RNA: Small nucleolar RNA R11/Z151
RNA sequence: GGGCUUAUGAUGAUAACAUACAAUUAUCUUAGCGGAUUUCAGUGAGGCUUUAGGGUCAAUGAUCUGAUUGUUACACACACUGAGGCUC
Numbered sequence: 001g002g003g004c005u006u007a008u009g010a011u012g013a014u015a016a017c018a019u020a021c022a023a024u025u026a027u028c029u030u031a032g033c034g035g036a037u038u039u040c041a042g043u044g045a046g047g048c049u050u051u052a053g054g055g056u057c058a059a060u061g062a063u064c065u066g067a068u069u070g071u072u073a074c075a076c077a078c079a080c081u082g083a084g085g086c087u088c
Stems, first nucleotide, its partner, number of pairs: 001088005